[Rfam]
RNA sequence: UUCAUCAAAUGAGGAAACGGAACAUUAUCUUAGGACACCUUCUUACACAGUUCCAAUGCUGUGGAUGAGAGAUACUAUAAUCUGAUGAUGAA
Numbered sequence: 001u002u003c004a005u006c007a008a009a010u011g012a013g014g015a016a017a018c019g020g021a022a023c024a025u026u027a028u029c030u031u032a033g034g035a036c037a038c039c040u041u042c043u044u045a046c047a048c049a050g051u052u053c054c055a056a057u058g059c060u061g062u063g064g065a066u067g068a069g070a071g072a073u074a075c076u077a078u079a080a081u082c083u084g085a086u087g088a089u090g091a092a
Base pairs, nucleotide, nucleotide: 001092002091003090004089005088006087007086043049
Background
Shown here is a 92-nucleotide sequence from Taxus chinensis, a member of the family "Small nucleolar RNA snoR31/Z110/Z27". A search with the family's covariance model found it, with a score of 50 bits. Taxonomically the source falls in Taxus (Eukaryota, Streptophyta, Euphyllophyta, Conifers II). A reference for the family is Chen et al. (2003), "The high diversity of snoRNAs in plants: identification and comparative study of 120 snoRNA genes from Oryza sativa", Nucleic Acids Res. About the family: This family contains several related snoRNAs including R31, Z27 and Z110.